[Rfam]
RNA sequence: GGGGAUGACUGGUUUCGACGCUGUUUGUGUACUCGUGGGAAGCGGGUCGAGGAUGCGAGGUUGUCUCGUUAACGAUCCUCGCAAAAUAUAAGUGCCAACUUAAAGCGCACUGAUCUAAGUCUUGCUGCUUAAGCGCUUAGAUCUGUCGGUAUAGGGCUUGUCUUCGGCCCUGUAUCCGGCAUGGUUUUAGAGGACUUGCCGCGUGUUUGCCGCUUGCGUGAACACCGGGACUUUAUUGCAAGCUGGGCCUGUUGAUUUAGAUUCCGCUGCAAAGAAUCAGGGCUGAGUAUAACGGUUUUAGCGGAUACACCCGUAGAAGUCACGGGCUCCAUGCCGCGGACGGGGGUUCGAUUCCCCCCAUCUCCACUG
Numbered sequence: 001g002g003g004g005a006u007g008a009c010u011g012g013u014u015u016c017g018a019c020g021c022u023g024u025u026u027g028u029g030u031a032c033u034c035g036u037g038g039g040a041a042g043c044g045g046g047u048c049g050a051g052g053a054u055g056c057g058a059g060g061u062u063g064u065c066u067c068g069u070u071a072a073c074g075a076u077c078c079u080c081g082c083a084a085a086a087u088a089u090a091a092g093u094g095c096c097a098a099c100u101u102a103a104a105g106c107g108c109a110c111u112g113a114u115c116u117a118a119g120u121c122u123u124g125c126u127g128c129u130u131a132a133g134c135g136c137u138u139a140g141a142u143c144u145g146u147c148g149g150u151a152u153a154g155g156g157c158u159u160g161u162c163u164u165c166g167g168c169c170c171u172g173u174a175u176c177c178g179g180c181a182u183g184g185u186u187u188u189a190g191a192g193g194a195c196u197u198g199c200c201g202c203g204u205g206u207u208u209g210c211c212g213c214u215u216g217c218g219u220g221a222a223c224a225c226c227g228g229g230a231c232u233u234u235a236u237u238g239c240a241a242g243c244u245g246g247g248c249c250u251g252u253u254g255a256u257u258u259a260g261a262u263u264c265c266g267c268u269g270c271a272a273a274g275a276a277u278c279a280g281g282g283c284u285g286a287g288u289a290u291a292a293c294g295g296u297u298u299u300a301g302c303g304g305a306u307a308c309a310c311c312c313g314u315a316g317a318a319g320u321c322a323c324g325g326g327c328u329c330c331a332u333g334c335c336g337c338g339g340a341c342g343g344g345g346g347u348u349c350g351a352u353u354c355c356c357c358c359c360a361u362c363u364c365c366a367c368u369g
Stems, first nucleotide, its partner, number of pairs: 001365007019338003023334002026331002032326007043313005048068005054083006118137002123135004144181006151173004160195006199228003203225005212243005246284005258274001263305004269299001271297001342358005
RNA: transfer-messenger RNA
Organism: Tropheryma whipplei